A member of the RNA family "Archaeal large subunit ribosomal RNA" from Candidatus Acidianus copahuensis, 100 nucleotides of a longer RNA. The source organism's lineage runs through Archaea, Thermoproteati, Thermoproteota, Sulfolobales and Acidianus. The literature on the family includes a 2001 paper in Science by Yusupov et al., "Crystal structure of the ribosome at 5.5 A resolution".
RNA sequence: GGUAAGGCCUGAAAGGAAUGAGCUCACCCAAAGGAGGGAAGCGCAAGCUUCUAGUACGAGGGUGAGGGAUCAGGGUCUUGCCUCUCGUCUUGAAACACGG
Numbered sequence: 001g002g003u004a005a006g007g008c009c010u011g012a013a014a015g016g017a018a019u020g021a022g023c024u025c026a027c028c029c030a031a032a033g034g035a036g037g038g039a040a041g042c043g044c045a046a047g048c049u050u051c052u053a054g055u056a057c058g059a060g061g062g063u064g065a066g067g068g069a070u071c072a073g074g075g076u077c078u079u080g081c082c083u084c085u086c087g088u089c090u091u092g093a094a095a096c097a098c099g100g
Stems, first nucleotide, its partner, number of pairs: 001082010015071002023066007033057001038051005085100004
Dot-bracket structure: ((((((((((....((......(((((((...(....(((((....))))).....)..)))))))...)).))))))))))..((((........))))